[Rfam]
RNA sequence: CUGCACGAACUCUCCCUAGCUUAUCUGAAUCUGUAACUAUGAAGAUCAAAGCCCCAAUGUUGGUGCUAGAUCCAUGCCGUUUCACGUGUUGCAGAGUAGCCUUUGCUCAUCGACUGGCUCUUCCGUGUCCGGCUUCAUCU
Numbered sequence: 001c002u003g004c005a006c007g008a009a010c011u012c013u014c015c016c017u018a019g020c021u022u023a024u025c026u027g028a029a030u031c032u033g034u035a036a037c038u039a040u041g042a043a044g045a046u047c048a049a050a051g052c053c054c055c056a057a058u059g060u061u062g063g064u065g066c067u068a069g070a071u072c073c074a075u076g077c078c079g080u081u082u083c084a085c086g087u088g089u090u091g092c093a094g095a096g097u098a099g100c101c102u103u104u105g106c107u108c109a110u111c112g113a114c115u116g117g118c119u120c121u122u123c124c125g126u127g128u129c130c131g132g133c134u135u136c137a138u139c140u
Base pairs, nucleotide, nucleotide: 003066004065005064006063008061009060010059019052020051021050022048024045025044026043076133077132078131079130088129090127091126092125094123095122099118100117101116
Rfam assigns this 140-nucleotide sequence from Hibiscus syriacus to the family "small nucleolar RNA snoR134". Pairs were carried over by alignment from the consensus structure, which was predicted with RNAalifold. A search with the family's covariance model found it, with a score of 50 bits. The source organism's lineage runs through Eukaryota, Viridiplantae, Gunneridae, malvids and Hibiscus.